[Rfam]
RNA sequence: GUGUGAGGACGACCUCCCCCAAUCGCGGGAAUCGUUUCGGGACGGCCCGA
Numbered sequence: 001g002u003g004u005g006a007g008g009a010c011g012a013c014c015u016c017c018c019c020c021a022a023u024c025g026c027g028g029g030a031a032u033c034g035u036u037u038c039g040g041g042a043c044g045g046c047c048c049g050a
Stems, first nucleotide, its partner, number of pairs: 001020001003018001005016004037050005
RNA: Guanidine-II riboswitch aptamer (mini-ykkC)
Organism: Pelagibacterium luteolum